[Rfam]
RNA sequence: GCAGACUGAAUGCCGCGACACUUGUUCCACACAGAACUUUUCGUUCUCUUUCACGAGUGGGCUAAGGUCUGAGAAUCACUCCCUCGAUGGGUUCUAGCUGGACCUGGUUCUAAAGAGCCAAACGACGUAUCAGAAACUCGUCAAGCUUCUCUUUCACCCAAGACACUACCCAUUUCUGGCCCUGUGGCUGAGGUAGUGAGGUUAUAGGAUUGAGCUUUGGACUUGGAAAUUGUCGUGGGGUCUGGGCGGUAUUGGUGUACAUGCUUCCUUUGUUGUCUUUUCCUUCCAACGCUACGGAGUCUCUUCGGAGACUCGAGAAGGGUUUAGCCAAAGCCGCUUGAAAAAGCGAAGUGCUUUUCCUGUCUAGUUCGUCCAGCAAUGGCGAACCGUCACUCAAACCUGUGGUGUAGGUGUCAUCGUGCAUCCUAGUGCAUUUGUGUACUGCCAGCACAAAUGUUGGCAGUGGUCUUCUUGUCAUUGAUGAUGGCAGUUGACCUCGGUAUCGUGUAAUUGCAUUCGUGGUCGUAGACCCAUUCUGGGCGCCGAUAUCGAACACUCUUGUGCGUUGUGCUCGGAAGCAGGAUUGAUAUGGCGUUGGAGGCGAAGGCAUCGGCUUGAUCCGAGAAGGGCACGUUGUAUACCGUCCUUUAGUGCACUUCGCGGCGCAUGGGUUUUAUUUGGUGGUCUCUUUCUUUGCCUUCGGGUAAGGACGUGCAUGACCAUCAUGAUCCCCCGUGUAACUCGAUUCAGACUAUUCUCAGUCUGC
Numbered sequence: 001g002c003a004g005a006c007u008g009a010a011u012g013c014c015g016c017g018a019c020a021c022u023u024g025u026u027c028c029a030c031a032c033a034g035a036a037c038u039u040u041u042c043g044u045u046c047u048c049u050u051u052c053a054c055g056a057g058u059g060g061g062c063u064a065a066g067g068u069c070u071g072a073g074a075a076u077c078a079c080u081c082c083c084u085c086g087a088u089g090g091g092u093u094c095u096a097g098c099u100g101g102a103c104c105u106g107g108u109u110c111u112a113a114a115g116a117g118c119c120a121a122a123c124g125a126c127g128u129a130u131c132a133g134a135a136a137c138u139c140g141u142c143a144a145g146c147u148u149c150u151c152u153u154u155c156a157c158c159c160a161a162g163a164c165a166c167u168a169c170c171c172a173u174u175u176c177u178g179g180c181c182c183u184g185u186g187g188c189u190g191a192g193g194u195a196g197u198g199a200g201g202u203u204a205u206a207g208g209a210u211u212g213a214g215c216u217u218u219g220g221a222c223u224u225g226g227a228a229a230u231u232g233u234c235g236u237g238g239g240g241u242c243u244g245g246g247c248g249g250u251a252u253u254g255g256u257g258u259a260c261a262u263g264c265u266u267c268c269u270u271u272g273u274u275g276u277c278u279u280u281u282c283c284u285u286c287c288a289a290c291g292c293u294a295c296g297g298a299g300u301c302u303c304u305u306c307g308g309a310g311a312c313u314c315g316a317g318a319a320g321g322g323u324u325u326a327g328c329c330a331a332a333g334c335c336g337c338u339u340g341a342a343a344a345a346g347c348g349a350a351g352u353g354c355u356u357u358u359c360c361u362g363u364c365u366a367g368u369u370c371g372u373c374c375a376g377c378a379a380u381g382g383c384g385a386a387c388c389g390u391c392a393c394u395c396a397a398a399c400c401u402g403u404g405g406u407g408u409a410g411g412u413g414u415c416a417u418c419g420u421g422c423a424u425c426c427u428a429g430u431g432c433a434u435u436u437g438u439g440u441a442c443u444g445c446c447a448g449c450a451c452a453a454a455u456g457u458u459g460g461c462a463g464u465g466g467u468c469u470u471c472u473u474g475u476c477a478u479u480g481a482u483g484a485u486g487g488c489a490g491u492u493g494a495c496c497u498c499g500g501u502a503u504c505g506u507g508u509a510a511u512u513g514c515a516u517u518c519g520u521g522g523u524c525g526u527a528g529a530c531c532c533a534u535u536c537u538g539g540g541c542g543c544c545g546a547u548a549u550c551g552a553a554c555a556c557u558c559u560u561g562u563g564c565g566u567u568g569u570g571c572u573c574g575g576a577a578g579c580a581g582g583a584u585u586g587a588u589a590u591g592g593c594g595u596u597g598g599a600g601g602c603g604a605a606g607g608c609a610u611c612g613g614c615u616u617g618a619u620c621c622g623a624g625a626a627g628g629g630c631a632c633g634u635u636g637u638a639u640a641c642c643g644u645c646c647u648u649u650a651g652u653g654c655a656c657u658u659c660g661c662g663g664c665g666c667a668u669g670g671g672u673u674u675u676a677u678u679u680g681g682u683g684g685u686c687u688c689u690u691u692c693u694u695u696g697c698c699u700u701c702g703g704g705u706a707a708g709g710a711c712g713u714g715c716a717u718g719a720c721c722a723u724c725a726u727g728a729u730c731c732c733c734c735g736u737g738u739a740a741c742u743c744g745a746u747u748c749a750g751a752c753u754a755u756u757c758u759c760a761g762u763c764u765g766c
Stems, first nucleotide, its partner, number of pairs: 001766004007760003012664007020058005034046004069750005080240004090104005105120006122236006140222003665738007
Dot-bracket structure: ((((..(((..(((((((.(((((.........((((.....)))).......)))))..........[[[[[......((((......(((((.....)))))((((((....)))))).((((((............(((.............................................................................)))........)))))))))).................................................................................................................................................................................................................................................................................................................................................................................................................................)))))))(((((((............................................................))))))).......]]]]].......)))..))))

Overview
The family of this 766-nucleotide sequence from Tetrapyrgos nigripes is "Nuclear RNase P". Ribonuclease P (RNase P) is a ubiquitous endoribonuclease, found in archaea, bacteria and eukarya as well as chloroplasts and mitochondria. Its best characterised activity is the generation of mature 5'-ends of tRNAs by cleaving the 5'-leader elements of precursor-tRNAs. By type it is a ribozyme. A search with the family's covariance model found it, with a score of 54 bits. Lineage of the source: Eukaryota > Opisthokonta > Agaricales > Campanellaceae > Tetrapyrgos. The base pairs follow the family's consensus structure, which is taken from published work.